Rfam assigns this 100-nucleotide RNA sequence from Cohnella lupini to the family "Purine riboswitch aptamer".
The base pairs follow the family's consensus structure, which is taken from published work.

[Rfam]
RNA sequence: UUAACUAACUACAAACUCAUUCGUAUAGCCUCACGAUUUCAGGGUGAGGGUUUCUACGGGAAGCCUUAACUUCCUAACUACGAAUACUGGAUCAUUCCGU
Numbered sequence: 001u002u003a004a005c006u007a008a009c010u011a012c013a014a015a016c017u018c019a020u021u022c023g024u025a026u027a028g029c030c031u032c033a034c035g036a037u038u039u040c041a042g043g044g045u046g047a048g049g050g051u052u053u054c055u056a057c058g059g060g061a062a063g064c065c066u067u068a069a070c071u072u073c074c075u076a077a078c079u080a081c082g083a084a085u086a087c088u089g090g091a092u093c094a095u096u097c098c099g100u
Stems, first nucleotide, its partner, number of pairs: 019085007029049006058075006